[Rfam]
RNA sequence: GGAGGCGGCAGGGCGCCUGGUGGCCCUCCCGGUCUUCAAAACCGAUGGUCCCGAGCACCUCGGGACGGCGGGUUCGAUUCCCGUCCGCCUCC
Numbered sequence: 001g002g003a004g005g006c007g008g009c010a011g012g013g014c015g016c017c018u019g020g021u022g023g024c025c026c027u028c029c030c031g032g033u034c035u036u037c038a039a040a041a042c043c044g045a046u047g048g049u050c051c052c053g054a055g056c057a058c059c060u061c062g063g064g065a066c067g068g069c070g071g072g073u074u075c076g077a078u079u080c081c082c083g084u085c086c087g088c089c090u091c092c
Stems, first nucleotide, its partner, number of pairs: 001092008012027002015024003030044004048066005069083004
Rfam assigns this 92-nucleotide sequence from Actinomadura macrotermitis to the family "Selenocysteine transfer RNA".
The family's consensus secondary structure is taken from published work.
The match comes from Rfam's covariance-model search (75 bits).
The organism belongs to Actinomadura, within Bacteria.